A member of the RNA family "Glycine riboswitch aptamer" from Pseudoneobacillus rhizosphaerae, 98 nucleotides long. NCBI's taxonomy places the organism under Bacteria, Bacillati, Bacillota, Caryophanales, Pseudoneobacillus.
RNA sequence: AUGAAAACAAGGGGAGAGACUGCAUUUGUGGCGCCGAAGGAGCAAACAAUGAUGAAUUUCGUUGUGAAUCUCUCAGGCAAAAGUACUCUUGUUGGACG
Numbered sequence: 001a002u003g004a005a006a007a008c009a010a011g012g013g014g015a016g017a018g019a020c021u022g023c024a025u026u027u028g029u030g031g032c033g034c035c036g037a038a039g040g041a042g043c044a045a046a047c048a049a050u051g052a053u054g055a056a057u058u059u060c061g062u063u064g065u066g067a068a069u070c071u072c073u074c075a076g077g078c079a080a081a082a083g084u085a086c087u088c089u090u091g092u093u094g095g096a097c098g
Stems, first nucleotide, its partner, number of pairs: 006093008020031004033078003036074002040072003046065007